[Rfam]
RNA sequence: ACGCGCUGGCGGGACUCGGUGAAAUUCCGAACCGGCGGUGAUCCGGGCGAAAGCCUGGUAAGCCCGCGACCCGGACGGCUCAGAGCCGCCCGGUGGACCUGGUGAGAACCCAGGGCCGACGGUUGAGUGCGGGCAACGCCCACGCUCAGACAGUCCGGAUGGGAGACAGCGCGC
Numbered sequence: 001a002c003g004c005g006c007u008g009g010c011g012g013g014a015c016u017c018g019g020u021g022a023a024a025u026u027c028c029g030a031a032c033c034g035g036c037g038g039u040g041a042u043c044c045g046g047g048c049g050a051a052a053g054c055c056u057g058g059u060a061a062g063c064c065c066g067c068g069a070c071c072c073g074g075a076c077g078g079c080u081c082a083g084a085g086c087c088g089c090c091c092g093g094u095g096g097a098c099c100u101g102g103u104g105a106g107a108a109c110c111c112a113g114g115g116c117c118g119a120c121g122g123u124u125g126a127g128u129g130c131g132g133g134c135a136a137c138g139c140c141c142a143c144g145c146u147c148a149g150a151c152a153g154u155c156c157g158g159a160u161g162g163g164a165g166a167c168a169g170c171g172c173g174c
Stems, first nucleotide, its partner, number of pairs: 003172006010165001017029003033118002035067004062116002071093002098114005120157003
The record is a 174-nucleotide RNA from Plantactinospora soyae, which matches "FMN riboswitch aptamer (RFN element)" in Rfam. On this family, see Vitreschak et al., Nucleic Acids Res 2002: "Regulation of riboflavin biosynthesis and transport genes in bacteria by transcriptional and translational attenuation". The base pairs follow the family's consensus structure, which is taken from published work. The RFN element is a highly conserved domain that is found frequently in the 5'-untranslated regions of prokaryotic mRNAs that encode for flavin mononucleotide (FMN) biosynthesis and transport proteins.